[Rfam]
RNA sequence: UCAGUGUCGCCACGCUGACGUGCCCGGUGCAAGGGGAUCAGCAUGGUGAUGGUGGGCGAACUCCGCCCCUGGCAGGGCGGGUUACGCCGUGGGCGUCGGCGUCCGAGAGUUCCCGCUCUCGGACGCCCACG
Numbered sequence: 001u002c003a004g005u006g007u008c009g010c011c012a013c014g015c016u017g018a019c020g021u022g023c024c025c026g027g028u029g030c031a032a033g034g035g036g037a038u039c040a041g042c043a044u045g046g047u048g049a050u051g052g053u054g055g056g057c058g059a060a061c062u063c064c065g066c067c068c069c070u071g072g073c074a075g076g077g078c079g080g081g082u083u084a085c086g087c088c089g090u091g092g093g094c095g096u097c098g099g100c101g102u103c104c105g106a107g108a109g110u111u112c113c114c115g116c117u118c119u120c121g122g123a124c125g126c127c128c129a130c131g
Stems, first nucleotide, its partner, number of pairs: 001093002006050002010046003014042005023034002052090004057086002062081007098127013
Dot-bracket structure: ((...((..(((.(((((....((........))...))))).)))..)).((((.((...(((((((......)))))))...)))))).))....(((((((((((((....)))))))))))))....